[Rfam]
Source information: Rfam assigns this 129-nucleotide part of an RNA from Cinara cedri to the family "Eukaryotic small subunit ribosomal RNA". Its family is annotated with ribosome and structural constituent of ribosome in the Gene Ontology. A reference for the family is Yusupov et al. (2001), "Crystal structure of the ribosome at 5.5 A resolution", Science. It scores 1570 bits against the family's covariance model. The family's consensus secondary structure is taken from published work.
RNA sequence: GAAAGUUAGAGGUUCGAAGGCGAUCAGAUACCGCCCUAGUUCUAACUGUAAACGAUGCCAGCUAGCGAUCCGCCGGCGUUUCCAUUAACGACCCGGCGGGCAGCUUCCGGGAAACCGAAGCUUUUCGGU
Numbered sequence: 001g002a003a004a005g006u007u008a009g010a011g012g013u014u015c016g017a018a019g020g021c022g023a024u025c026a027g028a029u030a031c032c033g034c035c036c037u038a039g040u041u042c043u044a045a046c047u048g049u050a051a052a053c054g055a056u057g058c059c060a061g062c063u064a065g066c067g068a069u070c071c072g073c074c075g076g077c078g079u080u081u082c083c084a085u086u087a088a089c090g091a092c093c094c095g096g097c098g099g100g101c102a103g104c105u106u107c108c109g110g111g112a113a114a115c116c117g118a119a120g121c122u123u124u125u126c127g128g129u
Stems, first nucleotide, its partner, number of pairs: 005046006015039001019035004057129003060122003064105003069100008078092003109116002